Shown here is a 168-nucleotide sequence from Streptomyces luteoverticillatus, a member of the family "Streptomyces sRNA scr5239". The literature on the family includes a 2015 paper in PLoS One by Vockenhuber et al., "Identification of metE as a second target of the sRNA scr5239 in Streptomyces coelicolor". The match comes from Rfam's covariance-model search (66 bits). Gene Ontology terms of the family: mRNA binding and negative regulation of translation.
RNA sequence: CGUCCGUCCUCCCCGCACAGGAGGGCGGAGCGAGGCCCGGCCCGCCCCAGGCGGCCAGGGCCUCCCGUCGGCCGACCCGGCCGUGGGGCCCGCACACCUCACGAGCGCCGGUCCGGCCGAUUCGCUCCGGGCUGCGGUGCCGGCUGGGUUGAGGGUCCCGGCGGGCGC
Numbered sequence: 001c002g003u004c005c006g007u008c009c010u011c012c013c014c015g016c017a018c019a020g021g022a023g024g025g026c027g028g029a030g031c032g033a034g035g036c037c038c039g040g041c042c043c044g045c046c047c048c049a050g051g052c053g054g055c056c057a058g059g060g061c062c063u064c065c066c067g068u069c070g071g072c073c074g075a076c077c078c079g080g081c082c083g084u085g086g087g088g089c090c091c092g093c094a095c096a097c098c099u100c101a102c103g104a105g106c107g108c109c110g111g112u113c114c115g116g117c118c119g120a121u122u123c124g125c126u127c128c129g130g131g132c133u134g135c136g137g138u139g140c141c142g143g144c145u146g147g148g149u150u151g152a153g154g155g156u157c158c159c160g161g162c163g164g165g166c167g168c
Stems, first nucleotide, its partner, number of pairs: 003029004008024005032064005037058001040056001042054005068120007077111005123139004128134002142162001144161005